This 93-nucleotide RNA sequence from spirochete symbiont of Stewartia floridana belongs to the Rfam family "TPP riboswitch aptamer (THI element)". The organism belongs to Spirochaetales, within Bacteria. The family's consensus secondary structure is taken from published work. Gene Ontology term of the family: thiamine pyrophosphate binding.
[Rfam]
RNA sequence: AUUGAGCUUCCGGGGUGGUCCGUUGGACCUGAGAAUACACUCGUAUACCUGAUCCGGAUAAUACCGGCGUAGGAACGAUGCUCUUCAUACCUG
Numbered sequence: 001a002u003u004g005a006g007c008u009u010c011c012g013g014g015g016u017g018g019u020c021c022g023u024u025g026g027a028c029c030u031g032a033g034a035a036u037a038c039a040c041u042c043g044u045a046u047a048c049c050u051g052a053u054c055c056g057g058a059u060a061a062u063a064c065c066g067g068c069g070u071a072g073g074a075a076c077g078a079u080g081c082u083c084u085u086c087a088u089a090c091c092u093g
Stems, first nucleotide, its partner, number of pairs: 006081002009078002011043004016037001017029005048073004054067004